[Rfam]
Notes: This 120-nucleotide RNA from Pontibacillus litoralis belongs to the Rfam family "PyrR binding site". It scores 62 bits against the family's covariance model. The literature on the family includes a 2001 paper in Nucleic Acids Res by Bonner et al., "Molecular recognition of pyr mRNA by the Bacillus subtilis attenuation regulatory protein PyrR".
RNA sequence: AAGCCCUUUAACAUAGUCCUGUGAGGCUAAGAAGGAAUUCGGAUAAAAGAGCAGAGUACUAUACGUAUGUAUAUCUGCAUCCAAAUCCCCUCUUGCCAAUAGCGAGAGGGGAUUUUUUUG
Numbered sequence: 001a002a003g004c005c006c007u008u009u010a011a012c013a014u015a016g017u018c019c020u021g022u023g024a025g026g027c028u029a030a031g032a033a034g035g036a037a038u039u040c041g042g043a044u045a046a047a048a049g050a051g052c053a054g055a056g057u058a059c060u061a062u063a064c065g066u067a068u069g070u071a072u073a074u075c076u077g078c079a080u081c082c083a084a085a086u087c088c089c090c091u092c093u094u095g096c097c098a099a100u101a102g103c104g105a106g107a108g109g110g111g112a113u114u115u116u117u118u119u120g
Stems, first nucleotide, its partner, number of pairs: 005035005014029005049080001051078005060069003083115014

By type it is a cis-regulatory element.